Background
The family of this 74-nucleotide RNA from Eumeta japonica is "mir-252 microRNA precursor family". Gene Ontology terms of the family: miRNA-mediated post-transcriptional gene silencing and RISC complex. For this family Rfam cites "Direct sequencing and expression analysis of a large number of miRNAs in Aedes aegypti and a multi-species survey of novel mosquito miRNAs" (Li et al., BMC Genomics, 2009). The organism belongs to Eumeta, within Eukaryota.
RNA sequence: UCUUGUUCCUAAGUACUAGUGCCGCAGGAGUAUUUAAUCGUUAGCUCCUGCUGCUUAAGUGCUUAUCAAUGAGG
Numbered sequence: 001u002c003u004u005g006u007u008c009c010u011a012a013g014u015a016c017u018a019g020u021g022c023c024g025c026a027g028g029a030g031u032a033u034u035u036a037a038u039c040g041u042u043a044g045c046u047c048c049u050g051c052u053g054c055u056u057a058a059g060u061g062c063u064u065a066u067c068a069a070u071g072a073g074g
Base pairs, nucleotide, nucleotide: 001074002073003072004071005070006069007068010065011064012063013062014061015060016059017058019056024051025050026049027048028047029046030045
Dot-bracket structure: (((((((..((((((((.(....(((((((..............)))))))....).))))))))..)))))))